[Rfam]
RNA sequence: AUGCGAUGAUGAGCGAAGUACAGUCUGACCUGGUACUGCCAUUGGUGUUGGCUUUGACCAGGGUGUGAUCCCUUAAUCUUCUCUCUGAGCUC
Numbered sequence: 001a002u003g004c005g006a007u008g009a010u011g012a013g014c015g016a017a018g019u020a021c022a023g024u025c026u027g028a029c030c031u032g033g034u035a036c037u038g039c040c041a042u043u044g045g046u047g048u049u050g051g052c053u054u055u056g057a058c059c060a061g062g063g064u065g066u067g068a069u070c071c072c073u074u075a076a077u078c079u080u081c082u083c084u085c086u087g088a089g090c091u092c
Base pairs, nucleotide, nucleotide: 001091003090004089038052039051040050041049
Dot-bracket structure: (.((.................................((((.......))))....................................))).